About this RNA:
Shown here is a 212-nucleotide RNA from Salipiger abyssi, a member of the family "permuted transfer-messenger RNA". Pairs were carried over by alignment from the consensus structure, which is taken from published work. NCBI's taxonomy places the organism under Bacteria, Alphaproteobacteria, Rhodobacterales, Roseobacteraceae, Salipiger. It is annotated as a non-coding RNA gene. The match comes from Rfam's covariance-model search (155 bits).

RNA sequence: GGACAUAAACGCGCUCGUAAUAAGCGGAUCGGACCCGGGGGCGGUACCCGGCGGCUCCACCAUAUCACCCUUCGUUGGGGGGAGCAUGGGGCCGAAACAGGAUCGACGAACGUCUAAAGGGGUUAGCUUUGUCCCGGUGAGCCACCACCGUUAUCGGUGCAAAUUGCAUAAUUGCCAACGACAAUCAUGCUCCGGUUGCAGUUGCUGCGUAA
Numbered sequence: 001g002g003a004c005a006u007a008a009a010c011g012c013g014c015u016c017g018u019a020a021u022a023a024g025c026g027g028a029u030c031g032g033a034c035c036c037g038g039g040g041g042c043g044g045u046a047c048c049c050g051g052c053g054g055c056u057c058c059a060c061c062a063u064a065u066c067a068c069c070c071u072u073c074g075u076u077g078g079g080g081g082g083a084g085c086a087u088g089g090g091g092c093c094g095a096a097a098c099a100g101g102a103u104c105g106a107c108g109a110a111c112g113u114c115u116a117a118a119g120g121g122g123u124u125a126g127c128u129u130u131g132u133c134c135c136g137g138u139g140a141g142c143c144a145c146c147a148c149c150g151u152u153a154u155c156g157g158u159g160c161a162a163a164u165u166g167c168a169u170a171a172u173u174g175c176c177a178a179c180g181a182c183a184a185u186c187a188u189g190c191u192c193c194g195g196u197u198g199c200a201g202u203u204g205c206u207g208c209g210u211a212a
Base pairs, nucleotide, nucleotide: 001134002133003132004131005130013123014122015121016120025112026111029109030108031107035051036050037049038048039047052094053093054092055091056090057089058088135150136149137148138147